[Rfam]
The record is a 587-nucleotide part of an RNA from Marinobacter gudaonensis, which matches "Bacterial large subunit ribosomal RNA" in Rfam.
RNA sequence: UCCGCGGCUAGACGGAAAGACCCCGUGAACCUUUACUAUAGCUUCACAGUGAACUUUGAGCAUGUUUGUGUAGGAUAGCUGGGAGGCUUUGAAGCGGGAACGCCAGUUCUCGUGGAGCCAACCUUGAAAUACCAGCCUGACAUGUUUGAGGUUCUAACUUCGUCCCCUGAUCGGGGAUAAGGACACUGUGUGGUGGGUAGUUUGACUGGGGCGGUCUCCUCCCAAAGCGUAACGGAGGAGCACAAAGGUGGGCUAAGCACGGUCGGACAUCGUGCGGUUAGUGUAAUGGCACAAGCCCGCUUGACUGCGAGACAGACACGUCGAGCAGGUACGAAAGUAGGUCAUAGUGAUCCGGUGGUUCUGUAUGGAAGGGCCAUCGCUCAACGGAUAAAAGGUACUCCGGGGAUAACAGGCUGAUACCGCCCAAGAGUUCACAUCGACGGCGGUGUUUGGCACCUCGAUGUCGGCUCAUCACAUCCUGGGGCUGAAGCCGGUCCCAAGGGUAUGGCUGUUCGCCAUUUAAAGUGGUACGCGAGCUGGGUUUAGAACGUCGUGAGACAGUUCGGUCCCUAUCUGCCGUGGACGUU
Numbered sequence: 001u002c003c004g005c006g007g008c009u010a011g012a013c014g015g016a017a018a019g020a021c022c023c024c025g026u027g028a029a030c031c032u033u034u035a036c037u038a039u040a041g042c043u044u045c046a047c048a049g050u051g052a053a054c055u056u057u058g059a060g061c062a063u064g065u066u067u068g069u070g071u072a073g074g075a076u077a078g079c080u081g082g083g084a085g086g087c088u089u090u091g092a093a094g095c096g097g098g099a100a101c102g103c104c105a106g107u108u109c110u111c112g113u114g115g116a117g118c119c120a121a122c123c124u125u126g127a128a129a130u131a132c133c134a135g136c137c138u139g140a141c142a143u144g145u146u147u148g149a150g151g152u153u154c155u156a157a158c159u160u161c162g163u164c165c166c167c168u169g170a171u172c173g174g175g176g177a178u179a180a181g182g183a184c185a186c187u188g189u190g191u192g193g194u195g196g197g198u199a200g201u202u203u204g205a206c207u208g209g210g211g212c213g214g215u216c217u218c219c220u221c222c223c224a225a226a227g228c229g230u231a232a233c234g235g236a237g238g239a240g241c242a243c244a245a246a247g248g249u250g251g252g253c254u255a256a257g258c259a260c261g262g263u264c265g266g267a268c269a270u271c272g273u274g275c276g277g278u279u280a281g282u283g284u285a286a287u288g289g290c291a292c293a294a295g296c297c298c299g300c301u302u303g304a305c306u307g308c309g310a311g312a313c314a315g316a317c318a319c320g321u322c323g324a325g326c327a328g329g330u331a332c333g334a335a336a337g338u339a340g341g342u343c344a345u346a347g348u349g350a351u352c353c354g355g356u357g358g359u360u361c362u363g364u365a366u367g368g369a370a371g372g373g374c375c376a377u378c379g380c381u382c383a384a385c386g387g388a389u390a391a392a393a394g395g396u397a398c399u400c401c402g403g404g405g406a407u408a409a410c411a412g413g414c415u416g417a418u419a420c421c422g423c424c425c426a427a428g429a430g431u432u433c434a435c436a437u438c439g440a441c442g443g444c445g446g447u448g449u450u451u452g453g454c455a456c457c458u459c460g461a462u463g464u465c466g467g468c469u470c471a472u473c474a475c476a477u478c479c480u481g482g483g484g485c486u487g488a489a490g491c492c493g494g495u496c497c498c499a500a501g502g503g504u505a506u507g508g509c510u511g512u513u514c515g516c517c518a519u520u521u522a523a524a525g526u527g528g529u530a531c532g533c534g535a536g537c538u539g540g541g542u543u544u545a546g547a548a549c550g551u552c553g554u555g556a557g558a559c560a561g562u563u564c565g566g567u568c569c570c571u572a573u574c575u576g577c578c579g580u581g582g583a584c585g586u587u
Stems, first nucleotide, its partner, number of pairs: 001583008010575003014570002022404004027400002029396005035201004042193002045190004051154016068137001078136005085119003094113008158181003162178006204216004217239006240385001242342002248300006254280002257275006281290002305328004311322003330339003353379007361372002413454003417451001418448007428438002465540001466538004470532001471529005478503002481498006505519005546564004550559003